[Rfam]
The family of this 403-nucleotide RNA from Epibacterium ulvae is "Bacterial RNase P class A". Rfam's curators write: Ribonuclease P (RNase P) is a ubiquitous endoribonuclease, found in archaea, bacteria and eukarya as well as chloroplasts and mitochondria. Its best characterised activity is the generation of mature 5'-ends of tRNAs by cleaving the 5'-leader elements of precursor-tRNAs. Cellular RNase Ps are ribonucleoproteins. RNA from bacterial RNase Ps retains its catalytic activity in the absence of the protein subunit, i.e. it is a ribozyme. Taxonomically the source falls in Epibacterium (Bacteria, Pseudomonadati, Pseudomonadota, Roseobacteraceae). It scores 308 bits against the family's covariance model.
RNA sequence: ACAGAAGGCUGGACGGCCGCGCGUGAGGCCUUGGCCUCUCUUGCGAGGAAAGUCCGGGCUCCCCAAAGCAACGGUGCCGGGUAACGCCCGGGCAGGGCAACCUGACGGAUAGCGCCACAGAAAACAAACCGCCUUGCAUGUCGAGGUAAGGAUGAAACGGUGGGGUAAGAGCCCACCGCGUGUCUGGCAACAGAUGCGGCAUGGCAAGCCCCACUGGGAGCAAUGCCAAAUAGGGUCCCCGCGCGGGCAGGUCGGCUUUUGUCGAUACCGCCGCUAGGUAAGCUUUGACCGAGAGGGACCGGGUUGGCAGCUAGAGGCGUCUGGCAACAGGCGUCGCAGAUGAAUGGUCGUCGAAGGGGCGUAAGCCCCGGGACAGAACCCGGCUUACAGGCCUUCUGUGCAU
Numbered sequence: 001a002c003a004g005a006a007g008g009c010u011g012g013a014c015g016g017c018c019g020c021g022c023g024u025g026a027g028g029c030c031u032u033g034g035c036c037u038c039u040c041u042u043g044c045g046a047g048g049a050a051a052g053u054c055c056g057g058g059c060u061c062c063c064c065a066a067a068g069c070a071a072c073g074g075u076g077c078c079g080g081g082u083a084a085c086g087c088c089c090g091g092g093c094a095g096g097g098c099a100a101c102c103u104g105a106c107g108g109a110u111a112g113c114g115c116c117a118c119a120g121a122a123a124a125c126a127a128a129c130c131g132c133c134u135u136g137c138a139u140g141u142c143g144a145g146g147u148a149a150g151g152a153u154g155a156a157a158c159g160g161u162g163g164g165g166u167a168a169g170a171g172c173c174c175a176c177c178g179c180g181u182g183u184c185u186g187g188c189a190a191c192a193g194a195u196g197c198g199g200c201a202u203g204g205c206a207a208g209c210c211c212c213a214c215u216g217g218g219a220g221c222a223a224u225g226c227c228a229a230a231u232a233g234g235g236u237c238c239c240c241g242c243g244c245g246g247g248c249a250g251g252u253c254g255g256c257u258u259u260u261g262u263c264g265a266u267a268c269c270g271c272c273g274c275u276a277g278g279u280a281a282g283c284u285u286u287g288a289c290c291g292a293g294a295g296g297g298a299c300c301g302g303g304u305u306g307g308c309a310g311c312u313a314g315a316g317g318c319g320u321c322u323g324g325c326a327a328c329a330g331g332c333g334u335c336g337c338a339g340a341u342g343a344a345u346g347g348u349c350g351u352c353g354a355a356g357g358g359g360c361g362u363a364a365g366c367c368c369c370g371g372g373a374c375a376g377a378a379c380c381c382g383g384c385u386u387a388c389a390g391g392c393c394u395u396c397u398g399u400g401c402a403u
Base pairs, nucleotide, nucleotide: 001399002398003397004396005395006394007393008392009391010390011388012352013351014350015349016348017347018346020045021044022043023042025040026039027038028037050386051385052384054383055382056381057380058379059220060219061218062217068289072216073215074214075213076212077091078090079089080088081087092106093104094103095102096101107211108210112209113208114205115204116203129151130150131147132146133145134144135143136142159177160176161175162174163173164172178200179198180197181196182195183194184193185192186191224309225308226307227306234300235299236298237297238296239295285291316335317334318333319332320331321330322329323328